[Rfam]
Record summary
This 132-nucleotide RNA from Sus scrofa belongs to the Rfam family "Small nucleolar RNA SNORA9". A search with the family's covariance model found it, with a score of 130 bits. The family's consensus secondary structure was predicted with PFOLD. The source organism's lineage runs through Eukaryota, Opisthokonta, Eutheria, Suina and Sus. Rfam's curators write: ACA9 is a member of the H/ACA class of snoRNA that guide the sites of modification of uridines to pseudouridines. The family's RNA type in Rfam is H/ACA-box small nucleolar RNA.
RNA sequence: UAGCAAGCCUCUCCAGUGUGCUGGGUCUGUGGUGACCCUGUGCAUUCCUCAGUGCUUGCAAGAAAAUUUUGAGAUUGUUUGAGGCCUUGCCCUGCUUCAUCCAGAGCAAGGUUAUAGAAAUUUCAGACAACU
Numbered sequence: 001u002a003g004c005a006a007g008c009c010u011c012u013c014c015a016g017u018g019u020g021c022u023g024g025g026u027c028u029g030u031g032g033u034g035a036c037c038c039u040g041u042g043c044a045u046u047c048c049u050c051a052g053u054g055c056u057u058g059c060a061a062g063a064a065a066a067u068u069u070u071g072a073g074a075u076u077g078u079u080u081g082a083g084g085c086c087u088u089g090c091c092c093u094g095c096u097u098c099a100u101c102c103a104g105a106g107c108a109a110g111g112u113u114a115u116a117g118a119a120a121u122u123u124c125a126g127a128c129a130a131c132u
Stems, first nucleotide, its partner, number of pairs: 003059006019044003023038005070125005085111006092104003